[Rfam]
RNA sequence: AUACGAAAAAGGCAAACUUUUUGAAAAAAAGGGACGCAAAACCAGAGACUAAAACAUCCAAACGUCAUGUCCGUCCGGUUACCGCA
Numbered sequence: 001a002u003a004c005g006a007a008a009a010a011g012g013c014a015a016a017c018u019u020u021u022u023g024a025a026a027a028a029a030a031g032g033g034a035c036g037c038a039a040a041a042c043c044a045g046a047g048a049c050u051a052a053a054a055c056a057u058c059c060a061a062a063c064g065u066c067a068u069g070u071c072c073g074u075c076c077g078g079u080u081a082c083c084g085c086a
Stems, first nucleotide, its partner, number of pairs: 012037002017032006040080004045075002047071003054065002057062001